[Rfam]
The record is a 100-nucleotide sequence from Halomicrobium zhouii, which matches "L4-Archaeoglobi ribosomal protein leades" in Rfam. The organism belongs to Halomicrobium, within Archaea. On this family, see Eckert and Weinberg, BMC Microbiol 2020: "Discovery of 20 novel ribosomal leader candidates in bacteria and archaea".
Nucleotides: 100
Base pairs, nucleotide, nucleotide: 001100002099003098004097005096008091009090010089011088012087013086016040017039018038023035024034025033026032027031044084045083046082047081048080049079050078052076053075
Number, partner (000 for none) and nucleotide at each position: 001100c002099u003098g004097a005096u006000g007000g008091g009090c010089g011088c012087g013086u014000u015000c016040g017039g018038g019000u020000c021000a022000a023035u024034u025033g026032c027031g028000g029000a030000c031027u032026g033025c034024a035023a036000c037000a038018c039017c040016c041000a042000g043000c044084c045083u046082c047081c048080c049079u050078c051000c052076c053075c054000g055000u056000u057000c058000c059000a060000g061000a062000c063000g064000g065000u066000a067000u068000g069000g070000a071000c072000g073000u074000g075053g076052g077000c078050g079049a080048g081047g082046g083045g084044g085000a086013g087012c088011g089010c090009g091008u092000c093000a094000c095000c096005g097004u098003c099002a100001g